[Rfam]
Shown here is a 391-nucleotide sequence from Frondihabitans sp. 762G35, a member of the family "Bacterial RNase P class A". The match comes from Rfam's covariance-model search (259 bits). A reference for the family is Frank and Pace (1998), "Ribonuclease P: unity and diversity in a tRNA processing ribozyme", Annu Rev Biochem. The source organism's lineage runs through Bacteria, Actinomycetes, Micrococcales, Microbacteriaceae and Frondihabitans. Pairs were carried over by alignment from the consensus structure, which is taken from published work.

RNA sequence: UGGGUCGGCAAGACGGUCGCGUCGCAGGAGCCUCCGGGCGCCUGUGCCGAGGAACGUCCGGGCUCCACAGAGCAGGGCGGUGGGUAACACCCACCCGGGGCAACCCGCGAGAAAGUGCAACAGAGAGCAGACCGCCACGGUUCCGUCGCGAGACGGGCCGGGGUAAGGGUGAAACGGCGGUGUAAGAGACCACCAGCGGUUCGGGUGACCGGCCGGCUAUGUAAACCUCGCCCGGAGCAAGGUCAGACAGGGAACGUUCGAGGCGGCUCGCCGAGUUCCCGGGUAGACCGCUAGAGCGCUGCGGCAACGCAGCGCCGAGAGAGAUGGCCGUCCACGGCGGCGUGCGUGCACGUCGCCCGGACAGAACCCGGCGUAGCAGCCGGCCCAUUCG
Numbered sequence: 001u002g003g004g005u006c007g008g009c010a011a012g013a014c015g016g017u018c019g020c021g022u023c024g025c026a027g028g029a030g031c032c033u034c035c036g037g038g039c040g041c042c043u044g045u046g047c048c049g050a051g052g053a054a055c056g057u058c059c060g061g062g063c064u065c066c067a068c069a070g071a072g073c074a075g076g077g078c079g080g081u082g083g084g085u086a087a088c089a090c091c092c093a094c095c096c097g098g099g100g101c102a103a104c105c106c107g108c109g110a111g112a113a114a115g116u117g118c119a120a121c122a123g124a125g126a127g128c129a130g131a132c133c134g135c136c137a138c139g140g141u142u143c144c145g146u147c148g149c150g151a152g153a154c155g156g157g158c159c160g161g162g163g164u165a166a167g168g169g170u171g172a173a174a175c176g177g178c179g180g181u182g183u184a185a186g187a188g189a190c191c192a193c194c195a196g197c198g199g200u201u202c203g204g205g206u207g208a209c210c211g212g213c214c215g216g217c218u219a220u221g222u223a224a225a226c227c228u229c230g231c232c233c234g235g236a237g238c239a240a241g242g243u244c245a246g247a248c249a250g251g252g253a254a255c256g257u258u259c260g261a262g263g264c265g266g267c268u269c270g271c272c273g274a275g276u277u278c279c280c281g282g283g284u285a286g287a288c289c290g291c292u293a294g295a296g297c298g299c300u301g302c303g304g305c306a307a308c309g310c311a312g313c314g315c316c317g318a319g320a321g322a323g324a325u326g327g328c329c330g331u332c333c334a335c336g337g338c339g340g341c342g343u344g345c346g347u348g349c350a351c352g353u354c355g356c357c358c359g360g361a362c363a364g365a366a367c368c369c370g371g372c373g374u375a376g377c378a379g380c381c382g383g384c385c386c387a388u389u390c391g
Stems, first nucleotide, its partner, number of pairs: 001387009012332007020049002023046006054374003058371005063237004070269004075233005080094005095109001096107004110228002115226002117222003132168002134164003138160005176194002179191003196217001197215003201212004241289004250280006262272003296315008